[Rfam]
RNA sequence: UGACCACGUCGCGACUGGCGCAUCAGGUGGAUCACCACCGGGGAGCGACGAGCUGUGCAGACUUCGGGUCGUUCGCCUGGGCCCCGGUC
Numbered sequence: 001u002g003a004c005c006a007c008g009u010c011g012c013g014a015c016u017g018g019c020g021c022a023u024c025a026g027g028u029g030g031a032u033c034a035c036c037a038c039c040g041g042g043g044a045g046c047g048a049c050g051a052g053c054u055g056u057g058c059a060g061a062c063u064u065c066g067g068g069u070c071g072u073u074c075g076c077c078u079g080g081g082c083c084c085c086g087g088u089c
Stems, first nucleotide, its partner, number of pairs: 003054001005052001007050006015042002017077004027038004066084005
The family of this 89-nucleotide sequence from Cellulomonas sp. PhB143 is "ZMP/ZTP riboswitch aptamer (pfl RNA motif)". A search with the family's covariance model found it, with a score of 66 bits. Pairs were carried over by alignment from the consensus structure, which is taken from published work.